[Rfam]
Rfam assigns this 87-nucleotide RNA from Lumnitzera littorea to the family "Plastid-psbA-1 3UTR RNA". From the family's description: Plastid psbA-1 is a non-coding RNA (ncRNA) present in plastids. It was identified in inverted repeat sequences in the 3 prime untranslate region (3UTR) of photosystem II quinone-binding protein (psbA). A reference for the family is Richter et al. (2023), "Retrograde signaling in plants: A critical review focusing on the GUN pathway and beyond", Plant Commun. It is one of the family's seed sequences.
RNA sequence: AAAGAAUUUUUUUUUUAGAAAAGAACACUAAGUAAAGGAGCAAUAACCAAUUUCUUGUUCUAUCAAGAGUUGAUUAUUGCUCCUUUA
Numbered sequence: 001a002a003a004g005a006a007u008u009u010u011u012u013u014u015u016u017a018g019a020a021a022a023g024a025a026c027a028c029u030a031a032g033u034a035a036a037g038g039a040g041c042a043a044u045a046a047c048c049a050a051u052u053u054c055u056u057g058u059u060c061u062a063u064c065a066a067g068a069g070u071u072g073a074u075u076a077u078u079g080c081u082c083c084u085u086u087a
Base pairs, nucleotide, nucleotide: 034086035085036084037083038082039081040080041079042078043077044076045075046074050071052069053068054067055066056065
The family's consensus secondary structure was predicted with LocARNA.